[Rfam]
RNA: Small nucleolar RNA SNORD42
Organism: Serilophus lunatus
RNA sequence: GUGCAAAUGAUGUAAACAUCAAUUCCACUGAGUAAUGUGAUGUUUCCAAAGGAACCACUGAUGCAC
Number, nucleotide and partner (000 for none) at each position: 001g066002u065003g064004c063005a062006a000007a000008u000009g000010a000011u000012g000013u000014a000015a000016a000017c000018a000019u000020c000021a000022a000023u000024u000025c000026c000027a000028c000029u000030g000031a000032g000033u000034a000035a000036u000037g000038u000039g000040a000041u000042g000043u000044u000045u000046c000047c000048a000049a000050a000051g000052g000053a000054a000055c000056c000057a000058c000059u000060g000061a000062u005063g004064c003065a002066c001